[Rfam]
The record is an 83-nucleotide RNA from Delftia acidovorans, which matches "SucA RNA motif" in Rfam. It is annotated as a cis-regulatory element. The base pairs follow the family's consensus structure, which is taken from published work. A reference for the family is Weinberg et al. (2007), "Identification of 22 candidate structured RNAs in bacteria using the CMfinder comparative genomics pipeline", Nucleic Acids Res.
RNA sequence: UCGCAUCCGCCAAUCGGUACAGCCGUGUCGCGGAAGGUUCCACAAACCAGCUAAUGCCUCCUUCAGGGAGGCUGAGGUCAGCG
Numbered sequence: 001u002c003g004c005a006u007c008c009g010c011c012a013a014u015c016g017g018u019a020c021a022g023c024c025g026u027g028u029c030g031c032g033g034a035a036g037g038u039u040c041c042a043c044a045a046a047c048c049a050g051c052u053a054a055u056g057c058c059u060c061c062u063u064c065a066g067g068g069a070g071g072c073u074g075a076g077g078u079c080a081g082c083g
Base pairs, nucleotide, nucleotide: 002083003082004081006034007033008032009031010030015025016024017023018022036048037047038046039045050078051077052076056072057071058070059069060068061067062066